[Rfam]
RNA sequence: UUCAUCGUGAGGUGGAGUCUGAAGGAAGGUGGAGGCAAAUCUCUAGUCUGACGAACAGAAAUCACAUGAGGCUACAGUUAAGGAUAAGGCCGCAUAACAAGCCAAAGUCCAAUAACUACUCAGAAUUAACUGUGUGUGGUAUCUGCGGAGCAGAAUAGAAAGAGCAUGUGGA
Numbered sequence: 001u002u003c004a005u006c007g008u009g010a011g012g013u014g015g016a017g018u019c020u021g022a023a024g025g026a027a028g029g030u031g032g033a034g035g036c037a038a039a040u041c042u043c044u045a046g047u048c049u050g051a052c053g054a055a056c057a058g059a060a061a062u063c064a065c066a067u068g069a070g071g072c073u074a075c076a077g078u079u080a081a082g083g084a085u086a087a088g089g090c091c092g093c094a095u096a097a098c099a100a101g102c103c104a105a106a107g108u109c110c111a112a113u114a115a116c117u118a119c120u121c122a123g124a125a126u127u128a129a130c131u132g133u134g135u136g137u138g139g140u141a142u143c144u145g146c147g148g149a150g151c152a153g154a155a156u157a158g159a160a161a162g163a164g165c166a167u168g169u170g171g172a
Stems, first nucleotide, its partner, number of pairs: 001016006035169002040163003044159001047154004062148002065145002071140003075132007082110004088103003
Group II catalytic intron D1-D4-3: a 172-nucleotide sequence from Clostridium oryzae. For this family Rfam cites "Control of branch-site choice by a group II intron" (Chu et al., EMBO J, 2001). From the family's description: Group II introns are found in rRNA, tRNA and mRNA of organelles in fungi, plants and protists, and also in mRNA in bacteria. It scores 101 bits against the family's covariance model.